RNA sequence: GGAAGCUGGUUUCAGGUGGUGGCUUAGAGUUCUUCAUGUGUUUAAUCUAGCACCAUUUGAAAUCAGUGUUCU
Numbered sequence: 001g002g003a004a005g006c007u008g009g010u011u012u013c014a015g016g017u018g019g020u021g022g023c024u025u026a027g028a029g030u031u032c033u034u035c036a037u038g039u040g041u042u043u044a045a046u047c048u049a050g051c052a053c054c055a056u057u058u059g060a061a062a063u064c065a066g067u068g069u070u071c072u
Base pairs, nucleotide, nucleotide: 001072002071003070004069005067006066007065008064009063010062011061012060013059014058016056017055018054019053020052021051025049026048027047028046
A member of the RNA family "mir-29 microRNA precursor family" from Acipenser ruthenus, 72 nucleotides long. It scores 69 bits against the family's covariance model. The family's consensus secondary structure was predicted with PFOLD. Rfam describes the family as follows. This family represents the microRNA (miRNA) precursors mir-29. Lineage of the source: Eukaryota > Metazoa > Bilateria > Chordata > Acipenser. A reference for the family is Ambros (2001), "microRNAs: tiny regulators with great potential", Cell.